[Rfam]
RNA sequence: AAUCCUGAGUAAUUGCGGUCGUAUCAUUACGGCUGAGGAAAGUCCAUUCUCGCACGGGCUGCGAUGCCCGUAGUGUUCGUGCUCGGUGAAAAAAUAAGCCGGGGGACUCUUUGUGAGUUACGGCGGAUAUUAAAGCUAAGGCUUGCUAUGCUUUAAUUCCCUAAGGUGCCACAGUGACGAACAGUAUUGGAAACGGUACUGAUGGAACGCGGUAAACCCCUCGAGCGGGAAACCCAAACUUUUGGUAGGGGAGCUUCACACACGGUAAAUGAACCAAGUGUGGGGGAGAAGUAUUUCGAUAUUUCUCAGAUAGAUGAUUACUACUUGUUAUGUCGUCCUGGGAUAUAAUAAGCACAAAACAUGGCUUAUAGGG
Numbered sequence: 001a002a003u004c005c006u007g008a009g010u011a012a013u014u015g016c017g018g019u020c021g022u023a024u025c026a027u028u029a030c031g032g033c034u035g036a037g038g039a040a041a042g043u044c045c046a047u048u049c050u051c052g053c054a055c056g057g058g059c060u061g062c063g064a065u066g067c068c069c070g071u072a073g074u075g076u077u078c079g080u081g082c083u084c085g086g087u088g089a090a091a092a093a094a095u096a097a098g099c100c101g102g103g104g105g106a107c108u109c110u111u112u113g114u115g116a117g118u119u120a121c122g123g124c125g126g127a128u129a130u131u132a133a134a135g136c137u138a139a140g141g142c143u144u145g146c147u148a149u150g151c152u153u154u155a156a157u158u159c160c161c162u163a164a165g166g167u168g169c170c171a172c173a174g175u176g177a178c179g180a181a182c183a184g185u186a187u188u189g190g191a192a193a194c195g196g197u198a199c200u201g202a203u204g205g206a207a208c209g210c211g212g213u214a215a216a217c218c219c220c221u222c223g224a225g226c227g228g229g230a231a232a233c234c235c236a237a238a239c240u241u242u243u244g245g246u247a248g249g250g251g252a253g254c255u256u257c258a259c260a261c262a263c264g265g266u267a268a269a270u271g272a273a274c275c276a277a278g279u280g281u282g283g284g285g286g287a288g289a290a291g292u293a294u295u296u297c298g299a300u301a302u303u304u305c306u307c308a309g310a311u312a313g314a315u316g317a318u319u320a321c322u323a324c325u326u327g328u329u330a331u332g333u334c335g336u337c338c339u340g341g342g343a344u345a346u347a348a349u350a351a352g353c354a355c356a357a358a359a360c361a362u363g364g365c366u367u368a369u370a371g372g373g
Stems, first nucleotide, its partner, number of pairs: 004373003007369001008322007016035006040367003044364004049229005054071006077224003081220001082103006104121001105119005122219002125160003133153004140147002166217002168213003182201008233250003254285007286307009324352011
Rfam assigns this 373-nucleotide sequence from Lentilactobacillus buchneri to the family "Bacterial RNase P class B". It scores 304 bits against the family's covariance model. Ribonuclease P (RNase P) is a ubiquitous endoribonuclease, found in archaea, bacteria and eukarya as well as chloroplasts and mitochondria. The source organism's lineage runs through Bacteria, Bacillota, Bacilli, Lentilactobacillus buchneri and Lentilactobacillus buchneri subsp. silagei. The literature on the family includes a 1998 paper in Annu Rev Biochem by Frank and Pace, "Ribonuclease P: unity and diversity in a tRNA processing ribozyme". Clan: RNaseP clan.